[Rfam]
RNA sequence: UUGACAACUCUGGAGGCUGAAGCCCUCUAUUUAUCCACAGAACAGAUACAGCCUGGGCGGCAGCAGUGCAAGCUUUCCCACGCUGCCCCCACCAAUGUGCCUCAUCUCUGUCCUGGAGGGACCACCUCUAGAGGUGAGAAGAGAGAUUGGUCUCCAUGGCUCUUUCAGUCCUUGGCCUUU
Numbered sequence: 001u002u003g004a005c006a007a008c009u010c011u012g013g014a015g016g017c018u019g020a021a022g023c024c025c026u027c028u029a030u031u032u033a034u035c036c037a038c039a040g041a042a043c044a045g046a047u048a049c050a051g052c053c054u055g056g057g058c059g060g061c062a063g064c065a066g067u068g069c070a071a072g073c074u075u076u077c078c079c080a081c082g083c084u085g086c087c088c089c090c091a092c093c094a095a096u097g098u099g100c101c102u103c104a105u106c107u108c109u110g111u112c113c114u115g116g117a118g119g120g121a122c123c124a125c126c127u128c129u130a131g132a133g134g135u136g137a138g139a140a141g142a143g144a145g146a147u148u149g150g151u152c153u154c155c156a157u158g159g160c161u162c163u164u165u166c167a168g169u170c171c172u173u174g175g176c177c178u179u180u
Stems, first nucleotide, its partner, number of pairs: 002167003008159001011156010024143001026141001028139001030138006038110003048102001051100002054097002063086004113131007
RNA: TUC338
Organism: Thamnophis sirtalis